[Rfam]
RNA sequence: AUCACCAAGUCGCUUAAUGCUGCUAUGCAGCAGUGGGAGAACCGAUUUUUAGGGGUGUAUUCAUCCGUCUGAGCCUGUCGCGGCUCCCGGAUGAUAGGGAACCUUUCUUUCCCGAACCCGGCAGCUAAUCUCAUAGGCGGAAGAGGGACAGGGA
Numbered sequence: 001a002u003c004a005c006c007a008a009g010u011c012g013c014u015u016a017a018u019g020c021u022g023c024u025a026u027g028c029a030g031c032a033g034u035g036g037g038a039g040a041a042c043c044g045a046u047u048u049u050u051a052g053g054g055g056u057g058u059a060u061u062c063a064u065c066c067g068u069c070u071g072a073g074c075c076u077g078u079c080g081c082g083g084c085u086c087c088c089g090g091a092u093g094a095u096a097g098g099g100a101a102c103c104u105u106u107c108u109u110u111c112c113c114g115a116a117c118c119c120g121g122c123a124g125c126u127a128a129u130c131u132c133a134u135a136g137g138c139g140g141a142a143g144a145g146g147g148a149c150a151g152g153g154a
Stems, first nucleotide, its partner, number of pairs: 011139004018032003033134006043052001053119003061094007097113004
The family of this 154-nucleotide RNA from Enterocloster bolteae is "c-di-AMP riboswitch aptamer (ydaO/yuaA leader)". It scores 84 bits against the family's covariance model. The source organism's lineage runs through Bacteria, Bacillati, Bacillota, Enterocloster and Enterocloster bolteae.